[Rfam]
RNA sequence: ACAUGGGUUAGUUAGGAGGCAAAGAUCAAAUUAGAUCGAAAGAUGUUUUGUCUUUGGUUGUUACGCUUCAAUCUAAAGGCCUUUUGAGGGGACAAUUCCGCUCUUUCCAUUACCAAUUGUCCUCCAAGCAGCCUUGGACAUUU
Number, nucleotide and partner (000 for none) at each position: 001a000002c000003a000004u021005g020006g000007g000008u017009u016010a000011g000012u000013u000014a000015g000016g009017a008018g000019g000020c005021a004022a000023a000024g000025a000026u000027c000028a000029a000030a000031u000032u000033a000034g059035a058036u057037c056038g055039a000040a000041a000042g000043a053044u000045g051046u050047u000048u000049u000050g046051u045052c000053u043054u000055u038056g037057g036058u035059u034060g000061u000062u000063a000064c000065g000066c000067u000068u000069c000070a000071a000072u000073c137074u136075a135076a134077a000078g132079g000080c000081c000082u000083u128084u127085u126086g125087a000088g124089g123090g122091g121092a120093c119094a118095a117096u116097u000098c000099c000100g000101c000102u000103c000104u000105u000106u000107c000108c000109a000110u000111u000112a000113c000114c000115a000116a096117u095118u094119g093120u092121c091122c090123u089124c088125c086126a085127a084128g083129c000130a000131g000132c078133c000134u076135u075136g074137g073138a000139c000140a000141u000142u000143u000
The family of this 143-nucleotide sequence from Salix dunnii is "Small nucleolar RNA U19".
The match comes from Rfam's covariance-model search (96 bits).
On this family, see Marker et al., Curr Biol 2002: "Experimental RNomics: identification of 140 candidates for small non-messenger RNAs in the plant Arabidopsis thaliana".
It is annotated as an H/ACA-box small nucleolar RNA.